[Rfam]
RNA sequence: AUUGUUACGAAGUAACUGCCGAAGACAGUAGGUGCCGGACGGCAUAAGGAUCAAAACGCCUACCGAGGAAGACAAAAUUCUUUACUUGAAUGUUGACCUCUCUGUCUUUUUGCAGAGAGGUUUUUUUCUGGCAGC
Numbered sequence: 001a002u003u004g005u006u007a008c009g010a011a012g013u014a015a016c017u018g019c020c021g022a023a024g025a026c027a028g029u030a031g032g033u034g035c036c037g038g039a040c041g042g043c044a045u046a047a048g049g050a051u052c053a054a055a056a057c058g059c060c061u062a063c064c065g066a067g068g069a070a071g072a073c074a075a076a077a078u079u080c081u082u083u084a085c086u087u088g089a090a091u092g093u094u095g096a097c098c099u100c101u102c103u104g105u106c107u108u109u110u111u112g113c114a115g116a117g118a119g120g121u122u123u124u125u126u127u128c129u130g131g132c133a134g135c
Base pairs, nucleotide, nucleotide: 028063029062030061031060032059033058034043035042036041097120098119099118100117101116102115103114104113105112
The family of this 135-nucleotide RNA from Drancourtella sp. An57 is "Ribosomal protein L10 leader". This family is a putative r-protein leader autoregulatory structure found in B. subtilis and other low-GC Gram-positive bacteria. It is located in the 5' untranslated regions of mRNAs encoding ribosomal proteins L10 and L12 (rplJ-rplL). A Rho-independent transcription terminator structure that is probably involved in regulation is included at the 3' end. The organism belongs to Drancourtella, within Bacteria. Gene Ontology term of the family: regulation of gene expression. Rfam classes the family as a cis-regulatory leader. For this family Rfam cites "Diverse mechanisms for regulating ribosomal protein synthesis in Escherichia coli" (Zengel and Lindahl, Prog Nucleic Acid Res Mol Biol, 1994).